The family of this 114-nucleotide RNA sequence from Trifolium medium is "MIR2593 microRNA precursor family". Its family is annotated with RISC complex and miRNA-mediated post-transcriptional gene silencing in the Gene Ontology.
RNA sequence: AUAUAAGCAAAGAUUCAUUUUUCAGGUUCAUUGAAUAACUGAUGUAUCGGGUUCAUAUUAUGGACCCGAUACAUUAGUUAUUCAAUGAACCUGAAAAAGAAUCUUUGCUUAUAU
Numbered sequence: 001a002u003a004u005a006a007g008c009a010a011a012g013a014u015u016c017a018u019u020u021u022u023c024a025g026g027u028u029c030a031u032u033g034a035a036u037a038a039c040u041g042a043u044g045u046a047u048c049g050g051g052u053u054c055a056u057a058u059u060a061u062g063g064a065c066c067c068g069a070u071a072c073a074u075u076a077g078u079u080a081u082u083c084a085a086u087g088a089a090c091c092u093g094a095a096a097a098a099g100a101a102u103c104u105u106u107g108c109u110u111a112u113a114u
Stems, first nucleotide, its partner, number of pairs: 002113006009106008018098008027089018049067004